[Rfam]
RNA: skipping-rope RNA
Organism: Clostridium cavendishii
RNA sequence: AUGAUUUGAGGUGGGAAAUGGCUCCCCACACGCAGUUUUGCUGUUAACAGAGAUGCAGGAUACGCCGACCUGCCAAAUUAU
Numbered sequence: 001a002u003g004a005u006u007u008g009a010g011g012u013g014g015g016a017a018a019u020g021g022c023u024c025c026c027c028a029c030a031c032g033c034a035g036u037u038u039u040g041c042u043g044u045u046a047a048c049a050g051a052g053a054u055g056c057a058g059g060a061u062a063c064g065c066c067g068a069c070c071u072g073c074c075a076a077a078u079u080a081u
Stems, first nucleotide, its partner, number of pairs: 001081008011029005019067004031050001032044004055073005
Dot-bracket structure: ((((((((..(((((...[[[[..))))).(((((.....)))).....)....(((((....]]]].)))))))))))))